A member of the RNA family "c-di-AMP riboswitch aptamer (ydaO/yuaA leader)" from Nocardioides sp. Root122, 160 nucleotides long. The pairing is the family consensus, mapped onto this sequence. From the family's description: This family represents a conserved RNA structure found upstream of the ydaO and yuaA genes in Bacillus subtilis and related genes in other bacteria. NCBI's taxonomy places the organism under Bacteria, Bacillati, Actinomycetes, Nocardioidaceae, Nocardioides.

RNA sequence: CCCCGAGAACCAUCGAGGGCAGGAGUGGGGGACCCACAGGUUCCACUGCCGGUCACGUGCGCCCGCACGCACCGGCUCGGGGCGAAGCCACAGCAUGGUGGCGGGGCACUUUCCAGUCCCAGUCCGACAGCUCACCUCACAGGCGUGGGAAAGGAAGCUC
Numbered sequence: 001c002c003c004c005g006a007g008a009a010c011c012a013u014c015g016a017g018g019g020c021a022g023g024a025g026u027g028g029g030g031g032a033c034c035c036a037c038a039g040g041u042u043c044c045a046c047u048g049c050c051g052g053u054c055a056c057g058u059g060c061g062c063c064c065g066c067a068c069g070c071a072c073c074g075g076c077u078c079g080g081g082g083c084g085a086a087g088c089c090a091c092a093g094c095a096u097g098g099u100g101g102c103g104g105g106g107c108a109c110u111u112u113c114c115a116g117u118c119c120c121a122g123u124c125c126g127a128c129a130g131c132u133c134a135c136c137u138c139a140c141a142g143g144c145g146u147g148g149g150a151a152a153g154g155a156a157g158c159u160c
Stems, first nucleotide, its partner, number of pairs: 001023002025140006035079001080125003088101004104119004